Record summary: A member of the RNA family "Small nucleolar RNA SNORA74" from Oncorhynchus mykiss, 200 nucleotides long. A reference for the family is Ganot et al. (1997), "The family of box ACA small nucleolar RNAs is defined by an evolutionarily conserved secondary structure and ubiquitous sequence elements essential for RNA accumulation", Genes Dev. The family is grouped with related families in Rfam's "SNORA74 clan". The family's consensus secondary structure was predicted with PFOLD. U19 belongs to the H/ACA class of snoRNAs. snoRNAs bind a number of proteins (including dyskerin, Gar1p and Nop10p in the case of the H/ACA class) to form snoRNP complexes. This class are thought to guide the sites of modification of uridines to pseudouridines by forming direct base pairing interactions with substrate RNAs. Targets may include ribosomal and spliceosomal RNAs but the exact functions of many snoRNAs, including U19, are not confirmed. Co-precipitation of U19 snoRNA with RNase MRP RNA suggests that U19 may be involved in pre-rRNA processing. Its family is annotated with nucleolus and RNA processing in the Gene Ontology. It is annotated as an H/ACA-box small nucleolar RNA.

[Rfam]
RNA sequence: UCCAGCGGUAGUCAGCUGUACAGGCCAGCCAAUGCCUGAACUAGUGUUACACUGCUGGAAGAGGAAGGCUCUGCUAAAGUGGCCUGGUCCAGCAGACGCUGUUUUAGUGGCUGUUGGUGCUGAGCUGUAGCAGAACUGUGCCCUUCUGAGAGUGGUCUGCACCUACACACGGGGGCAGCCCUAGUAGAAGGGUUAACAAA
Numbered sequence: 001u002c003c004a005g006c007g008g009u010a011g012u013c014a015g016c017u018g019u020a021c022a023g024g025c026c027a028g029c030c031a032a033u034g035c036c037u038g039a040a041c042u043a044g045u046g047u048u049a050c051a052c053u054g055c056u057g058g059a060a061g062a063g064g065a066a067g068g069c070u071c072u073g074c075u076a077a078a079g080u081g082g083c084c085u086g087g088u089c090c091a092g093c094a095g096a097c098g099c100u101g102u103u104u105u106a107g108u109g110g111c112u113g114u115u116g117g118u119g120c121u122g123a124g125c126u127g128u129a130g131c132a133g134a135a136c137u138g139u140g141c142c143c144u145u146c147u148g149a150g151a152g153u154g155g156u157c158u159g160c161a162c163c164u165a166c167a168c169a170c171g172g173g174g175g176c177a178g179c180c181c182u183a184g185u186a187g188a189a190g191g192g193u194u195a196a197c198a199a200a
Stems, first nucleotide, its partner, number of pairs: 001059009011050002015045004021038005068136001070134007081126003085122001086120001089117003093113003097109004140193006154181002158177003162173003